[Rfam]
RNA sequence: AACAUAAAGAAGCAAUAAUCAAUUCCUUGUUCUAACAAGAAGUUUAGUAUUGCCCCUUUAG
Numbered sequence: 001a002a003c004a005u006a007a008a009g010a011a012g013c014a015a016u017a018a019u020c021a022a023u024u025c026c027u028u029g030u031u032c033u034a035a036c037a038a039g040a041a042g043u044u045u046a047g048u049a050u051u052g053c054c055c056c057u058u059u060a061g
Stems, first nucleotide, its partner, number of pairs: 006059004012053006021044002024041001026039004
The record is a 61-nucleotide sequence from Ziziphus jujuba, which matches "Plastid-psbA-4 3UTR RNA" in Rfam. Rfam describes the family as follows. Plastid psbA-4 is a non-coding RNA (ncRNA) present in plastids. It was identified in inverted repeat sequences in the 3 prime untranslate region (3UTR) of photosystem II quinone-binding protein (psbA). On this family, see Richter et al., Plant Commun 2023: "Retrograde signaling in plants: A critical review focusing on the GUN pathway and beyond". Clan: Plastid-psbA 3UTR RNA clan.